About this RNA:
The family of this 124-nucleotide RNA from Vermamoeba vermiformis is "mt-5S-like H. vermiformis". On this family, see Bullerwell et al., Eukaryot Cell 2010: "Abundant 5S rRNA-like transcripts encoded by the mitochondrial genome in amoebozoa". The family's RNA type in Rfam is ribosomal RNA. From the family's description: mtDNA-encoded RNA with 5S rRNA-like structures that is associated with the mitoribosome. The organism belongs to Vermamoeba, within Eukaryota. Gene Ontology term of the family: ribosome.
RNA sequence: UUUUGAAGCUUGUUCCUUUGCUAGAAUAUAAAUAAGCCAGCAUAUGUUUCACAUUGCUUUAGUGCUUUGUUCUUUUCUAUUUUAUUCUUUAUGAUUAAAGUAGUUUCUAAGGAAAACUCUGUUC
Numbered sequence: 001u002u003u004u005g006a007a008g009c010u011u012g013u014u015c016c017u018u019u020g021c022u023a024g025a026a027u028a029u030a031a032a033u034a035a036g037c038c039a040g041c042a043u044a045u046g047u048u049u050c051a052c053a054u055u056g057c058u059u060u061a062g063u064g065c066u067u068u069g070u071u072c073u074u075u076u077c078u079a080u081u082u083u084a085u086u087c088u089u090u091a092u093g094a095u096u097a098a099a100g101u102a103g104u105u106u107c108u109a110a111g112g113a114a115a116a117c118u119c120u121g122u123u124c
Base pairs, nucleotide, nucleotide: 011116013114014113015112016111017110018109020107023073024072025071026070027069028068033061034060035059036057037056039054077103078102079101080100081099082098083097084096086094087093